Shown here is a 164-nucleotide RNA from Lachnospiraceae bacterium NE2001, a member of the family "Clostridiales-1 RNA".
The organism belongs to Lachnospiraceae, within Bacteria.
The base pairs follow the family's consensus structure, which is taken from published work.
The match comes from Rfam's covariance-model search (49 bits).
The family has 194 seed sequences and 1,172 matches in Rfam 15.1.

[Rfam]
RNA sequence: GCAGGUAACACAAAAUAUACAGGUACUCCGUGAAUGCUUGCAUUCAAAGGAGUGCCUGUAUAUUUUUUGUUAACCUUGCGGAGCAAGGUUGUGCAAUAUACAUCGAUAAAGUGUCUGCGAAGCAGACGAUAGAGCGCGUAGCGCGGACUUUAUCGAUUGUAUGU
Numbered sequence: 001g002c003a004g005g006u007a008a009c010a011c012a013a014a015a016u017a018u019a020c021a022g023g024u025a026c027u028c029c030g031u032g033a034a035u036g037c038u039u040g041c042a043u044u045c046a047a048a049g050g051a052g053u054g055c056c057u058g059u060a061u062a063u064u065u066u067u068u069g070u071u072a073a074c075c076u077u078g079c080g081g082a083g084c085a086a087g088g089u090u091g092u093g094c095a096a097u098a099u100a101c102a103u104c105g106a107u108a109a110a111g112u113g114u115c116u117g118c119g120a121a122g123c124a125g126a127c128g129a130u131a132g133a134g135c136g137c138g139u140a141g142c143g144c145g146g147a148c149u150u151u152a153u154c155g156a157u158u159g160u161a162u163g164u
Stems, first nucleotide, its partner, number of pairs: 001164003005160003010070004016062014031047001032045005077124003083118003127155005134144004